Rfam assigns this 113-nucleotide RNA from Magnolia odora to the family "Plastid-psbA-1 3UTR RNA". The family is grouped with related families in Rfam's "Plastid-psbA 3UTR RNA clan". The organism belongs to Magnolia, within Eukaryota. Plastid psbA-1 is a non-coding RNA (ncRNA) present in plastids. It was identified in inverted repeat sequences in the 3 prime untranslate region (3UTR) of photosystem II quinone-binding protein (psbA).
RNA sequence: GUUGAAGUUCCAUCUACAAAUGGAUAAUACUUCAGUCUUAGUGUAUAUGAGUCGUUGAAGGAUCCGAUCAAUACCCAACUUCUUGUUCUAUCAAGAAGUUGGGUAUUGAUCCG
Numbered sequence: 001g002u003u004g005a006a007g008u009u010c011c012a013u014c015u016a017c018a019a020a021u022g023g024a025u026a027a028u029a030c031u032u033c034a035g036u037c038u039u040a041g042u043g044u045a046u047a048u049g050a051g052u053c054g055u056u057g058a059a060g061g062a063u064c065c066g067a068u069c070a071a072u073a074c075c076c077a078a079c080u081u082c083u084u085g086u087u088c089u090a091u092c093a094a095g096a097a098g099u100u101g102g103g104u105a106u107u108g109a110u111c112c113g
Stems, first nucleotide, its partner, number of pairs: 009024005064113001066111009076101003080097005